[Rfam]
Nucleotides: 084
Base pairs, nucleotide, nucleotide: 014070015069016068017067018066019065020064021063022062023061026058027057028056029055030054031053032052033051
Number, partner (000 for none) and nucleotide at each position: 001000c002000a003000g004000u005000g006000c007000a008000g009000u010000c011000a012000c013000u014070c015069a016068u017067a018066a019065a020064g021063u022062a023061g024000a025000c026058a027057g028056c029055a030054c031053u032052a033051c034000u035000a036000a037000a038000g039000g040000u041000g042000u043000c044000u045000a046000a047000c048000a049000g050000u051033g052032u053031a054030g055029u056028g057027u058026u059000u060000c061023c062022u063021a064020c065019u066018u067017u068016a069015u070014g071000g072000a073000u074000g075000a076000g077000u078000g079000u080000a081000c082000u083000g084000u